[Rfam]
RNA sequence: GCGCGUGGACGACCUCGCGUCUUGCCUGAUUCUGGGGACGACCCC
Numbered sequence: 001g002c003g004c005g006u007g008g009a010c011g012a013c014c015u016c017g018c019g020u021c022u023u024g025c026c027u028g029a030u031u032c033u034g035g036g037g038a039c040g041a042c043c044c045c
Stems, first nucleotide, its partner, number of pairs: 001020005007014002034045004